[Rfam]
RNA: transfer-messenger RNA
RNA sequence: GGGGGUGCAUUGGUUUCGACGGGGGUUGUGAAGUCGCCUGGCGCAUGCCGAGGGGGUAGCUUUCCUCGUAAAUCCAGCUGCAAAACUCUAGUUGCCAACGACGACAACUACGCUCUGGCCGCUUAAGGCCUAAGCCUCGAAACCGCUUGUGUCCAUGCUCGCGGUGUAGAGUCACUAUCAUGGAAUCGCGCUGGACGGCUGCCUGUCAGUCCGGCACUAGAACACAACAGGCUGGUUCCCGGAUGCGCUUCGCGCACCGUGCUGUUCGGGGACGAGAUCCAACGGUGAGCUAAGCAUGUAGUGCUGGGGAUGGAGUGCCUUCGGACGGCGGUUCAAUUCCGCCCACCUCCACCA
Numbered sequence: 001g002g003g004g005g006u007g008c009a010u011u012g013g014u015u016u017c018g019a020c021g022g023g024g025g026u027u028g029u030g031a032a033g034u035c036g037c038c039u040g041g042c043g044c045a046u047g048c049c050g051a052g053g054g055g056g057u058a059g060c061u062u063u064c065c066u067c068g069u070a071a072a073u074c075c076a077g078c079u080g081c082a083a084a085a086c087u088c089u090a091g092u093u094g095c096c097a098a099c100g101a102c103g104a105c106a107a108c109u110a111c112g113c114u115c116u117g118g119c120c121g122c123u124u125a126a127g128g129c130c131u132a133a134g135c136c137u138c139g140a141a142a143c144c145g146c147u148u149g150u151g152u153c154c155a156u157g158c159u160c161g162c163g164g165u166g167u168a169g170a171g172u173c174a175c176u177a178u179c180a181u182g183g184a185a186u187c188g189c190g191c192u193g194g195a196c197g198g199c200u201g202c203c204u205g206u207c208a209g210u211c212c213g214g215c216a217c218u219a220g221a222a223c224a225c226a227a228c229a230g231g232c233u234g235g236u237u238c239c240c241g242g243a244u245g246c247g248c249u250u251c252g253c254g255c256a257c258c259g260u261g262c263u264g265u266u267c268g269g270g271g272a273c274g275a276g277a278u279c280c281a282a283c284g285g286u287g288a289g290c291u292a293a294g295c296a297u298g299u300a301g302u303g304c305u306g307g308g309g310a311u312g313g314a315g316u317g318c319c320u321u322c323g324g325a326c327g328g329c330g331g332u333u334c335a336a337u338u339c340c341g342c343c344c345a346c347c348u349c350c351a352c353c354a
Stems, first nucleotide, its partner, number of pairs: 001350007020323007029314001033311003037307001039306004044298005049068005056081006113134002117130004135171001137169001139167001144166002147164003152184006186219001188217001190215004199234001201232004235273010246261003252290002255287004327343005